[Rfam]
RNA: tRNA
Organism: Bacteroidales bacterium WCE2008
RNA sequence: GCGGUUGUGGUGAAAUGGUAGACACGCUACUUUGAGGGGGUAGUGAGCGUUGGCUCAUGGGAGUUCGAGUCUCCCCAACCGCA
Numbered sequence: 001g002c003g004g005u006u007g008u009g010g011u012g013a014a015a016u017g018g019u020a021g022a023c024a025c026g027c028u029a030c031u032u033u034g035a036g037g038g039g040g041u042a043g044u045g046a047g048c049g050u051u052g053g054c055u056c057a058u059g060g061g062a063g064u065u066c067g068a069g070u071c072u073c074c075c076c077a078a079c080c081g082c083a
Stems, first nucleotide, its partner, number of pairs: 001082007010025003027043005059075005